[Rfam]
RNA sequence: GAUGUAAGACGAAAGGUUAAGUUCGCGCCGUCCUGGCGCAACACCCUUCUGACUAACAUCCUGUUGC
Number, nucleotide and partner (000 for none) at each position: 001g000002a000003u000004g000005u000006a000007a000008g000009a000010c000011g049012a048013a047014a000015g045016g044017u043018u000019a000020a000021g000022u000023u000024c000025g039026c038027g037028c036029c035030g000031u000032c000033c000034u000035g029036g028037c027038g026039c025040a000041a000042c000043a017044c016045c015046c000047u013048u012049c011050u000051g000052a000053c000054u066055a065056a064057c063058a000059u000060c000061c000062u000063g057064u056065u055066g054067c000